[Rfam]
RNA sequence: UAACCUACUUAGCGAUAAGUAGCUGAACCAUCAGAAGUCAGCCGAUGUCAUAGUACAAAUCGGUCUAGAACGAUUUGGAAGGAC
Numbered sequence: 001u002a003a004c005c006u007a008c009u010u011a012g013c014g015a016u017a018a019g020u021a022g023c024u025g026a027a028c029c030a031u032c033a034g035a036a037g038u039c040a041g042c043c044g045a046u047g048u049c050a051u052a053g054u055a056c057a058a059a060u061c062g063g064u065c066u067a068g069a070a071c072g073a074u075u076u077g078g079a080a081g082g083a084c
Stems, first nucleotide, its partner, number of pairs: 001025002005022007037046003047084003056077006
Dot-bracket structure: ((..(((((((....))))))).))...........(((....)))(((......((((((..........))))))....)))